About this RNA
Rfam assigns this 96-nucleotide RNA sequence to the family "DUF3800-V RNA".

[Rfam]
RNA sequence: AGGAGUAUGCAAUAAUAACUUAUGAAAUGCCGUAAUAUUCCUCCUAAAUAUUAGGAACUUAAGUUGCGGACUACCAUUUCACAAGACGCUACUUCU
Numbered sequence: 001a002g003g004a005g006u007a008u009g010c011a012a013u014a015a016u017a018a019c020u021u022a023u024g025a026a027a028u029g030c031c032g033u034a035a036u037a038u039u040c041c042u043c044c045u046a047a048a049u050a051u052u053a054g055g056a057a058c059u060u061a062a063g064u065u066g067c068g069g070a071c072u073a074c075c076a077u078u079u080c081a082c083a084a085g086a087c088g089c090u091a092c093u094u095c096u
Base pairs, nucleotide, nucleotide: 001096002095003094004093005092006091009089010088023081024080025079026078027077028076029075030069031068032067033066034065035064036063042056043055044054045053046052

Pairs were carried over by alignment from the consensus structure, which is taken from published work. It is annotated as a small RNA.